The record is a 586-nucleotide part of an RNA from Nocardioides jishulii, which matches "Bacterial large subunit ribosomal RNA" in Rfam. Pairs were carried over by alignment from the consensus structure, which is taken from published work.

RNA sequence: CGCGCGGCAGGACGGAAAGACCCCGGGACCUUUACUAUAGUUUGGUAUUGGUGUUUGGUUCGGCUUGUGUAGGAUAGGUGGGAGACUGUGAAGCAUUCACGCCAGUGUUUGUGGAGUCAACGUUGAAAUACCACUCUGGUCGUACUAGAUGUCUAACCUAGGUCCGUAAUCCGGAUCAGGGACAGUGCCUGAUGGGUAGUUUAACUGGGGCGGUUGCCUCCUAAAAUGUAACGGAGGCGCUCAAAGGUUCCCUCAGCCUGGUUGGCAAUCAGGUGGCGAGUGUAAGUGCACAAGGGAGCUUGACUGUGAGACAGACAUGUCGAGCAGGGACGAAAGUCGGAACUAGUGAUCCGGCGUCGGCAUGUGGAAGCGGCGUCGCUCAACGGAUAAAAGGUACCCCGGGGAUAACAGGCUGAUCUUCCCCAAGAGUCCAUAUCGACGGGAUGGUUUGGCACCUCGAUGUCGGCUCGUCGCAUCCUGGGGCUGGAGUAGGUCCCAAGGGUUGGGCUGUUCGCCCAUUAAAGCGGCACGCGAGCUGGGUUUAGAACGUCGUGAGACAGUUCGGUCCCUAUCCGCCGCGCGCGUU
Numbered sequence: 001c002g003c004g005c006g007g008c009a010g011g012a013c014g015g016a017a018a019g020a021c022c023c024c025g026g027g028a029c030c031u032u033u034a035c036u037a038u039a040g041u042u043u044g045g046u047a048u049u050g051g052u053g054u055u056u057g058g059u060u061c062g063g064c065u066u067g068u069g070u071a072g073g074a075u076a077g078g079u080g081g082g083a084g085a086c087u088g089u090g091a092a093g094c095a096u097u098c099a100c101g102c103c104a105g106u107g108u109u110u111g112u113g114g115a116g117u118c119a120a121c122g123u124u125g126a127a128a129u130a131c132c133a134c135u136c137u138g139g140u141c142g143u144a145c146u147a148g149a150u151g152u153c154u155a156a157c158c159u160a161g162g163u164c165c166g167u168a169a170u171c172c173g174g175a176u177c178a179g180g181g182a183c184a185g186u187g188c189c190u191g192a193u194g195g196g197u198a199g200u201u202u203a204a205c206u207g208g209g210g211c212g213g214u215u216g217c218c219u220c221c222u223a224a225a226a227u228g229u230a231a232c233g234g235a236g237g238c239g240c241u242c243a244a245a246g247g248u249u250c251c252c253u254c255a256g257c258c259u260g261g262u263u264g265g266c267a268a269u270c271a272g273g274u275g276g277c278g279a280g281u282g283u284a285a286g287u288g289c290a291c292a293a294g295g296g297a298g299c300u301u302g303a304c305u306g307u308g309a310g311a312c313a314g315a316c317a318u319g320u321c322g323a324g325c326a327g328g329g330a331c332g333a334a335a336g337u338c339g340g341a342a343c344u345a346g347u348g349a350u351c352c353g354g355c356g357u358c359g360g361c362a363u364g365u366g367g368a369a370g371c372g373g374c375g376u377c378g379c380u381c382a383a384c385g386g387a388u389a390a391a392a393g394g395u396a397c398c399c400c401g402g403g404g405a406u407a408a409c410a411g412g413c414u415g416a417u418c419u420u421c422c423c424c425a426a427g428a429g430u431c432c433a434u435a436u437c438g439a440c441g442g443g444a445u446g447g448u449u450u451g452g453c454a455c456c457u458c459g460a461u462g463u464c465g466g467c468u469c470g471u472c473g474c475a476u477c478c479u480g481g482g483g484c485u486g487g488a489g490u491a492g493g494u495c496c497c498a499a500g501g502g503u504u505g506g507g508c509u510g511u512u513c514g515c516c517c518a519u520u521a522a523a524g525c526g527g528c529a530c531g532c533g534a535g536c537u538g539g540g541u542u543u544a545g546a547a548c549g550u551c552g553u554g555a556g557a558c559a560g561u562u563c564g565g566u567c568c569c570u571a572u573c574c575g576c577c578g579c580g581c582g583c584g585u586u
Stems, first nucleotide, its partner, number of pairs: 001582008010574003014569002022403006028395005034200004041192002044189004050153010061142005067136001077135005084118003093112003098107003157180003161177006203215004216238006239384001241341002247299006253279002256274006280289002304327004310321003329338003352378007360371002412453003416450001417447002420444004427437002464539001465537004469531001470528005477502002480497006504518005545563004549558003